[Rfam]
RNA sequence: GUUUGCGUUACAACGCAAAUGUUUGCGUUAUAACGCAAAGGUUUGCGUUAAAACGCAAAUGUUUGCGUUAUAACGCAAAAGGUUUGCGUUGUAACGCAAAAGUUUGCGUUGUAACGCAAAUGUUUGCGUUAUAACGCAAACGCAAAGGU
Numbered sequence: 001g002u003u004u005g006c007g008u009u010a011c012a013a014c015g016c017a018a019a020u021g022u023u024u025g026c027g028u029u030a031u032a033a034c035g036c037a038a039a040g041g042u043u044u045g046c047g048u049u050a051a052a053a054c055g056c057a058a059a060u061g062u063u064u065g066c067g068u069u070a071u072a073a074c075g076c077a078a079a080a081g082g083u084u085u086g087c088g089u090u091g092u093a094a095c096g097c098a099a100a101a102g103u104u105u106g107c108g109u110u111g112u113a114a115c116g117c118a119a120a121u122g123u124u125u126g127c128g129u130u131a132u133a134a135c136g137c138a139a140a141c142g143c144a145a146a147g148g149u
Stems, first nucleotide, its partner, number of pairs: 003078006013068003017064013032049006086143003107122004123140007
Shown here is a 149-nucleotide RNA from Mytilus coruscus, a member of the family "Small Cajal body specific RNA 1". Pairs were carried over by alignment from the consensus structure, which was predicted with RNAalifold. A reference for the family is Darzacq et al. (2002), "Cajal body-specific small nuclear RNAs: a novel class of 2'-O-methylation and pseudouridylation guide RNAs", EMBO J. The family's RNA type in Rfam is small Cajal body RNA. The source organism's lineage runs through Eukaryota, Lophotrochozoa, Mytilidae, Mytilinae and Mytilus. Rfam links the family to the GO terms Cajal body, RNA processing and nucleolus. The family has 29 seed sequences and 715 matches in Rfam 15.1. About the family: scaRNAs are a specific class of small nuclear RNAs which localise to the Cajal bodies and guide the modification of RNA polymerase II transcribed spliceosomal RNAs U1, U2, U4, U5 and U12. ACA35 belong to the H/ACA box class of guide RNAs as it has the predicted hairpin-hinge-hairpin-tail structure, conserved H/ACA-box motifs and is found associated with GAR1.